[Rfam]
Rfam assigns this 217-nucleotide sequence from Reinekea blandensis to the family "FMN riboswitch aptamer (RFN element)". The source organism's lineage runs through Bacteria, Pseudomonadati, Gammaproteobacteria, Saccharospirillaceae and Reinekea blandensis. The family's consensus secondary structure is taken from published work.
RNA sequence: GCAUAACUUCAGGGCGGGGUGAAAUUCCCCACCGGUGGUAGUUGAUGAGAGUGAUGACCGUGUGUCGUUGUUUUUGUCAGGAGCCCACGAGCGCCCGAGUCGCCAUUCUGGUGGCCCGGGGUCUAGCAGAUCAGGUGCGCAAGACAGGCAAUCUAAGGAUUGGUUGAUCGUGCAAGGCCUGAGCCGACGGUGAUAGUCCGGAUGGAAGAAGUUAACG
Numbered sequence: 001g002c003a004u005a006a007c008u009u010c011a012g013g014g015c016g017g018g019g020u021g022a023a024a025u026u027c028c029c030c031a032c033c034g035g036u037g038g039u040a041g042u043u044g045a046u047g048a049g050a051g052u053g054a055u056g057a058c059c060g061u062g063u064g065u066c067g068u069u070g071u072u073u074u075u076g077u078c079a080g081g082a083g084c085c086c087a088c089g090a091g092c093g094c095c096c097g098a099g100u101c102g103c104c105a106u107u108c109u110g111g112u113g114g115c116c117c118g119g120g121g122u123c124u125a126g127c128a129g130a131u132c133a134g135g136u137g138c139g140c141a142a143g144a145c146a147g148g149c150a151a152u153c154u155a156a157g158g159a160u161u162g163g164u165u166g167a168u169c170g171u172g173c174a175a176g177g178c179c180u181g182a183g184c185c186g187a188c189g190g191u192g193a194u195a196g197u198c199c200g201g202a203u204g205g206a207a208g209a210a211g212u213u214a215a216c217g
Base pairs, nucleotide, nucleotide: 004214005213006212007211008210009209010208017029018028019027031197032196033186034185035088036087037086038085091127092126131182132181133180134179135178188200189199190198